[Rfam]
RNA sequence: ACUGCAGCAACGGCAACACCUAGGGAACCGGGGAACCACCACCUUGGGGUGAAUCGGGCCAACUUCCGCGAGGAAGCGGCCCGUAGGAGACCUUCCUGCUCCGAACCCGUCAGCUAACCCGGUAGGCGAGAAGGAAGGAAAGG
Numbered sequence: 001a002c003u004g005c006a007g008c009a010a011c012g013g014c015a016a017c018a019c020c021u022a023g024g025g026a027a028c029c030g031g032g033g034a035a036c037c038a039c040c041a042c043c044u045u046g047g048g049g050u051g052a053a054u055c056g057g058g059c060c061a062a063c064u065u066c067c068g069c070g071a072g073g074a075a076g077c078g079g080c081c082c083g084u085a086g087g088a089g090a091c092c093u094u095c096c097u098g099c100u101c102c103g104a105a106c107c108c109g110u111c112a113g114c115u116a117a118c119c120c121g122g123u124a125g126g127c128g129a130g131a132a133g134g135a136a137g138g139a140a141a142g143g
Stems, first nucleotide, its partner, number of pairs: 003026001005024001027123006037046002047108003055083006086102004
Rfam assigns this 143-nucleotide RNA from Streptomyces sp. CNQ-509 to the family "c-di-AMP riboswitch aptamer (ydaO/yuaA leader)". It scores 84 bits against the family's covariance model. From the family's description: This family represents a conserved RNA structure found upstream of the ydaO and yuaA genes in Bacillus subtilis and related genes in other bacteria. NCBI's taxonomy places the organism under Bacteria, Actinomycetota, Actinomycetes, Streptomycetaceae, Streptomyces. Gene Ontology terms of the family: cyclic-di-AMP binding and regulation of gene expression.